The record is a 132-nucleotide RNA from Phycicoccus elongatus, which matches "ALIL pseudoknot" in Rfam. Its family is annotated with positive regulation of translational frameshifting in the Gene Ontology. A search with the family's covariance model found it, with a score of 82 bits. Lineage of the source: Bacteria > Bacillati > Actinomycetes > Phycicoccus > Phycicoccus elongatus. Rfam classes the family as a cis-regulatory element.
RNA sequence: CGCGUAUUUCGCCAAGGCGGAGUUCGACCGCAGAAUCAAGUGAUCGUGGCCUACAUCGACUCCCACCGGGAGCGGUUCGGCGUCGAACCGAUCUGCGCGGUGCUCUCCGAGCACGGUGUCCCGAUCGCGCCG
Numbered sequence: 001c002g003c004g005u006a007u008u009u010c011g012c013c014a015a016g017g018c019g020g021a022g023u024u025c026g027a028c029c030g031c032a033g034a035a036u037c038a039a040g041u042g043a044u045c046g047u048g049g050c051c052u053a054c055a056u057c058g059a060c061u062c063c064c065a066c067c068g069g070g071a072g073c074g075g076u077u078c079g080g081c082g083u084c085g086a087a088c089c090g091a092u093c094u095g096c097g098c099g100g101u102g103c104u105c106u107c108c109g110a111g112c113a114c115g116g117u118g119u120c121c122c123g124a125u126c127g128c129g130c131c132g
Base pairs, nucleotide, nucleotide: 017031018030019029020028078132079131080130081129082128089127090126092124093123095121097119098118
Dot-bracket structure: ................((((.......))))..............................................(((((......((.((.(.((...................)).).)).)))))))